[Rfam]
RNA: MIR8565 microRNA precursor family
Organism: Amborella trichopoda
RNA sequence: CCCACACCCAUGUGUGUAGGACCCUAAAGGAUCACCAUGAAAUUUGGCACAAAUCUCUAGAAAAAUUAUUAUAUAAGUAUAGGAUUUGAUUUUUCUAGAGAUUUGUGCUAAAUUUAAUGGUGAUCAUUUGAGGUCUUACAUACAUAGGUGUGGG
Numbered sequence: 001c002c003c004a005c006a007c008c009c010a011u012g013u014g015u016g017u018a019g020g021a022c023c024c025u026a027a028a029g030g031a032u033c034a035c036c037a038u039g040a041a042a043u044u045u046g047g048c049a050c051a052a053a054u055c056u057c058u059a060g061a062a063a064a065a066u067u068a069u070u071a072u073a074u075a076a077g078u079a080u081a082g083g084a085u086u087u088g089a090u091u092u093u094u095c096u097a098g099a100g101a102u103u104u105g106u107g108c109u110a111a112a113u114u115u116a117a118u119g120g121u122g123a124u125c126a127u128u129u130g131a132g133g134u135c136u137u138a139c140a141u142a143c144a145u146a147g148g149u150g151u152g153g154g
Stems, first nucleotide, its partner, number of pairs: 002153007010145004015140009025130004030125003034121005040115029069082005